Background: A member of the RNA family "MIR5565 microRNA precursor family" from Miscanthus lutarioriparius, 109 nucleotides long.
[Rfam]
RNA sequence: GUAGUUGGAUUCGCAUCAAUUCACGUGUGUUGGGAUGCAUCGGAGUGGAAGUUGAACUAAAUUUCACCCCAAUCCAUCCCAACACAUAUGGAUUAAGGUGAAUCCGACA
Dot-bracket structure: ...(((((((((((.(.((((((.((((((((..(((.((.((.(((.................))).)).)).)))..)))))))).)))))).).))))))))))).
Numbered sequence: 001g002u003a004g005u006u007g008g009a010u011u012c013g014c015a016u017c018a019a020u021u022c023a024c025g026u027g028u029g030u031u032g033g034g035a036u037g038c039a040u041c042g043g044a045g046u047g048g049a050a051g052u053u054g055a056a057c058u059a060a061a062u063u064u065c066a067c068c069c070c071a072a073u074c075c076a077u078c079c080c081a082a083c084a085c086a087u088a089u090g091g092a093u094u095a096a097g098g099u100g101a102a103u104c105c106g107a108c109a
Stems, first nucleotide, its partner, number of pairs: 004108011016096001018094006025087008035077003039073002042070002045067003